[Rfam]
RNA sequence: UCUGAAGCUGGGCGUAGAUACAGAGAAGCCUGUGCUUUUAGA
Numbered sequence: 001u002c003u004g005a006a007g008c009u010g011g012g013c014g015u016a017g018a019u020a021c022a023g024a025g026a027a028g029c030c031u032g033u034g035c036u037u038u039u040a041g042a
Stems, first nucleotide, its partner, number of pairs: 001042005006036003009032005
Shown here is a 42-nucleotide RNA from Acipenser ruthenus, a member of the family "MAT2A 3'UTR stem loop D". The organism belongs to Acipenser, within Eukaryota. A reference for the family is Parker et al. (2011), "New families of human regulatory RNA structures identified by comparative analysis of vertebrate genomes", Genome Res.